RNA sequence: GCCUGGUGGUUCCUAGCAUCAGCUCCUAAGUGCUGAACUGCAGGUUUUUAUUAACAGGCAUAUAGUAAUUCUGCAGUUUAAUGCAUGGAGGCUGUCCCAUAGCAGACUUCCAUAGCCCGGUUGCAGAGACAUUU
Numbered sequence: 001g002c003c004u005g006g007u008g009g010u011u012c013c014u015a016g017c018a019u020c021a022g023c024u025c026c027u028a029a030g031u032g033c034u035g036a037a038c039u040g041c042a043g044g045u046u047u048u049u050a051u052u053a054a055c056a057g058g059c060a061u062a063u064a065g066u067a068a069u070u071c072u073g074c075a076g077u078u079u080a081a082u083g084c085a086u087g088g089a090g091g092c093u094g095u096c097c098c099a100u101a102g103c104a105g106a107c108u109u110c111c112a113u114a115g116c117c118c119g120g121u122u123g124c125a126g127a128g129a130c131a132u133u134u
Base pairs, nucleotide, nucleotide: 001059002058003057004056007050008049012044013043014042019036020035021034022033023032071126073124074123075122076121077120078119083116084115085113086112087111088110090108091107092105093104094103095102

Small nucleolar RNA SNORA84: a 134-nucleotide RNA sequence from Betta splendens. Rfam classes the family as an H/ACA-box small nucleolar RNA. The match comes from Rfam's covariance-model search (78 bits).